[Rfam]
RNA sequence: ACGAAUUGUAGAGGUCGCGAUAAUAAUCAGUACCAAUAAUGAGUUAAGCAACGAAGAGUUAUUGGGAAAGGUAUUAUUGCCGAAGGAUAUAGCUGAUGCUUUAAGGCUAUGUACCUGGGGAUGUAUAUAAUAUAUGCAUAACUGUCACAAUAUUAAAUUGUGUUGAGCUACAUUUAAG
Number, nucleotide and partner (000 for none) at each position: 001a000002c000003g000004a000005a000006u000007u172008g171009u170010a169011g168012a000013g000014g000015u000016c000017g080018c079019g078020a077021u076022a075023a074024u073025a072026a000027u000028c000029a000030g000031u000032a000033c065034c064035a063036a062037u061038a060039a059040u058041g000042a000043g000044u000045u000046a000047a000048g000049c000050a000051a000052c000053g000054a000055a000056g000057a000058g040059u039060u038061a037062u036063u035064g034065g033066g000067a000068a000069a000070g000071g000072u025073a024074u023075u022076a021077u020078u019079g018080c017081c000082g000083a000084a116085g115086g114087a112088u111089a110090u109091a108092g107093c106094u105095g000096a000097u000098g000099c000100u000101u000102u000103a000104a000105g094106g093107c092108u091109a090110u089111g088112u087113a000114c086115c085116u084117g143118g142119g000120g000121a139122u138123g137124u136125a135126u134127a133128u000129a000130a000131u000132a000133u127134a126135u125136g124137c123138a122139u121140a000141a000142c118143u117144g000145u000146c162147a161148c160149a159150a158151u157152a000153u000154u000155a000156a000157a151158u150159u149160g148161u147162g146163u000164u000165g000166a000167g000168c011169u010170a009171c008172a007173u000174u000175u000176a000177a000178g000
RNA: Lysine riboswitch aptamer